[Rfam]
RNA sequence: CUGACGGGCGCGUUCGGGUCAAUUGCGGACUGCAACACCCGGUCUCCCUCCCGGUGCCGCCGUCGAUGGCGUCACCGAGCGAGGGAGCACGCGUGACCAUCAG
Number, nucleotide and partner (000 for none) at each position: 001c103002u102003g101004a100005c000006g000007g000008g094009c093010g092011c091012g090013u089014u000015c041016g040017g039018g038019u000020c000021a000022a000023u035024u034025g033026c032027g031028g000029a000030c000031u027032g026033c025034a024035a023036c000037a000038c018039c017040c016041g015042g000043u000044c087045u086046c085047c084048c083049u082050c081051c000052c079053g000054g000055u000056g000057c000058c000059g000060c000061c000062g000063u000064c000065g000066a000067u000068g000069g000070c000071g000072u000073c000074a000075c000076c000077g000078a000079g052080c000081g050082a049083g048084g047085g046086a045087g044088c000089a013090c012091g011092c010093g009094u008095g000096a000097c000098c000099a000100u004101c003102a002103g001
L4-Archaeoglobi ribosomal protein leades: a 103-nucleotide RNA from Salinirubellus salinus.
On this family, see Eckert and Weinberg, BMC Microbiol 2020: "Discovery of 20 novel ribosomal leader candidates in bacteria and archaea".
The family's consensus secondary structure is taken from published work.
The family's RNA type in Rfam is cis-regulatory leader.